[Rfam]
RNA sequence: AAAAAGGGCAGGCCUUGCCUAAGGCACAGUAUGGGGCGGCUCCGGCCGUCCUUGUGGUGAAUCGCGAUCAGGAGAUUUGCCCUGCAUAAUUUCUGAGCAGCCGCGCUGGAAUGGACCUCACGGGCUAAUUCCACCGG
Numbered sequence: 001a002a003a004a005a006g007g008g009c010a011g012g013c014c015u016u017g018c019c020u021a022a023g024g025c026a027c028a029g030u031a032u033g034g035g036g037c038g039g040c041u042c043c044g045g046c047c048g049u050c051c052u053u054g055u056g057g058u059g060a061a062u063c064g065c066g067a068u069c070a071g072g073a074g075a076u077u078u079g080c081c082c083u084g085c086a087u088a089a090u091u092u093c094u095g096a097g098c099a100g101c102c103g104c105g106c107u108g109g110a111a112u113g114g115a116c117c118u119c120a121c122g123g124g125c126u127a128a129u130u131c132c133a134c135c136g137g
Base pairs, nucleotide, nucleotide: 008085009084010083011082012081013024014023015022016021025056026055027054028053029052034051035050036049037048038047039046040045057080058079059078060077061076062075063074103135105134108132109131110130111129112128116124117123118122

Rfam assigns this 137-nucleotide RNA sequence from Phytophthora ramorum to the family "U11 spliceosomal RNA". By type it is a spliceosomal small nuclear RNA. It is one of the family's seed sequences. Rfam links the family to the GO terms mRNA 5'-splice site recognition, U11 snRNP and pre-mRNA 5'-splice site binding.